[Rfam]
RNA sequence: GGCAGAGUAGGUGCCUGCGCGUCAAGUGCCGGUCGGACGGGGAGUUGCCGACUGGACGAAGGGGGAGACCCCGCGGUGCAGGUGUUGCAUCCCGCUGCU
Number, nucleotide and partner (000 for none) at each position: 001g099002g098003c097004a096005g095006a000007g000008u000009a000010g086011g085012u084013g083014c082015c081016u080017g079018c078019g077020c075021g074022u073023c000024a000025a000026g057027u056028g000029c055030c054031g053032g052033u051034c050035g049036g048037a000038c000039g000040g092041g091042g090043a000044g088045u000046u000047g000048c036049c035050g034051a033052c032053u031054g030055g029056a027057c026058g000059a000060a000061g072062g071063g070064g069065g000066a000067g000068a000069c064070c063071c062072c061073g022074c021075g020076g000077u019078g018079c017080a016081g015082g014083u013084g012085u011086u010087g000088c044089a000090u042091c041092c040093c000094g000095c005096u004097g003098c002099u001